The family of this 436-nucleotide part of an RNA from Thiohalophilus thiocyanatoxydans is "Bacterial large subunit ribosomal RNA". The match comes from Rfam's covariance-model search (2894 bits). The source organism's lineage runs through Bacteria, Pseudomonadati, Thiohalomonadales, Thiohalophilaceae and Thiohalophilus.

RNA sequence: CUCCCCGAAAGCUAUUUAGGUAGCGCCUCAUGUCUCACUCCUGGGGGUAGAGCACUGUUUCGGCUAGGGGGCCAUCCCGGCUUACCAACCCGAUGCAAACUCCGAAUACCAGGAAGUGCAAUCAUGGGAGACACACGGCGGGUGCUAACGUCCGUCGUGAAGAGGGAAACAACCCAGACCGCCAGCUAAGGUCCCAAAAUUACAGCUCAGUGGGAAACGAUGUGGGAAGGCCCAGACAGCCAGGAGGUUGGCUUAGAAGCAGCCAUCCUUUAAAGAAAGCGUAAUAGCUCACUGGUCGAGUCGGCCUGCGCGGAAGAUUUAACGGGGCUCAAGCUGUAUACCGAAGCUGCGGAUGCCGCAAGGCAUGGUAGGGGAGCGUUCUGUAGGCCUGCGAAGGUGUGCUGUAAGGCAUGCUGGAGGUAUCAGAAGUGCGAAU
Numbered sequence: 001c002u003c004c005c006c007g008a009a010a011g012c013u014a015u016u017u018a019g020g021u022a023g024c025g026c027c028u029c030a031u032g033u034c035u036c037a038c039u040c041c042u043g044g045g046g047g048u049a050g051a052g053c054a055c056u057g058u059u060u061c062g063g064c065u066a067g068g069g070g071g072c073c074a075u076c077c078c079g080g081c082u083u084a085c086c087a088a089c090c091c092g093a094u095g096c097a098a099a100c101u102c103c104g105a106a107u108a109c110c111a112g113g114a115a116g117u118g119c120a121a122u123c124a125u126g127g128g129a130g131a132c133a134c135a136c137g138g139c140g141g142g143u144g145c146u147a148a149c150g151u152c153c154g155u156c157g158u159g160a161a162g163a164g165g166g167a168a169a170c171a172a173c174c175c176a177g178a179c180c181g182c183c184a185g186c187u188a189a190g191g192u193c194c195c196a197a198a199a200u201u202a203c204a205g206c207u208c209a210g211u212g213g214g215a216a217a218c219g220a221u222g223u224g225g226g227a228a229g230g231c232c233c234a235g236a237c238a239g240c241c242a243g244g245a246g247g248u249u250g251g252c253u254u255a256g257a258a259g260c261a262g263c264c265a266u267c268c269u270u271u272a273a274a275g276a277a278a279g280c281g282u283a284a285u286a287g288c289u290c291a292c293u294g295g296u297c298g299a300g301u302c303g304g305c306c307u308g309c310g311c312g313g314a315a316g317a318u319u320u321a322a323c324g325g326g327g328c329u330c331a332a333g334c335u336g337u338a339u340a341c342c343g344a345a346g347c348u349g350c351g352g353a354u355g356c357c358g359c360a361a362g363g364c365a366u367g368g369u370a371g372g373g374g375a376g377c378g379u380u381c382u383g384u385a386g387g388c389c390u391g392c393g394a395a396g397g398u399g400u401g402c403u404g405u406a407a408g409g410c411a412u413g414c415u416g417g418a419g420g421u422a423u424c425a426g427a428a429g430u431g432c433g434a435a436u
Stems, first nucleotide, its partner, number of pairs: 001376006011024005026130001027128006035121001036118003039114006050103001051101002056097003060093004067086002069083005134159010164175003179352004184348003190342003199339001201338006218312002222309005229302003239296005245269003250264003270274001275290001279288002353366005377431001379428005387421003396415008